The family of this 77-nucleotide RNA from Alligator mississippiensis is "Mammalian CPEB3 ribozyme".

RNA sequence: GGUUGAGAGUUUGAGACCAUAGCAGAAGCCUUCAGGCUGUGGCCCUGUCAGAUUCCAACGGAUCUGUGAAUUCUGCU
Numbered sequence: 001g002g003u004u005g006a007g008a009g010u011u012u013g014a015g016a017c018c019a020u021a022g023c024a025g026a027a028g029c030c031u032u033c034a035g036g037c038u039g040u041g042g043c044c045c046u047g048u049c050a051g052a053u054u055c056c057a058a059c060g061g062a063u064c065u066g067u068g069a070a071u072u073c074u075g076c077u
Stems, first nucleotide, its partner, number of pairs: 013045001015044001017042002021077007028040002049066007
Dot-bracket structure: ............[.[.[[..(((((((((.........))]].]]...(((((((....)))))))....)))))))
The base pairs follow the family's consensus structure, which is taken from published work.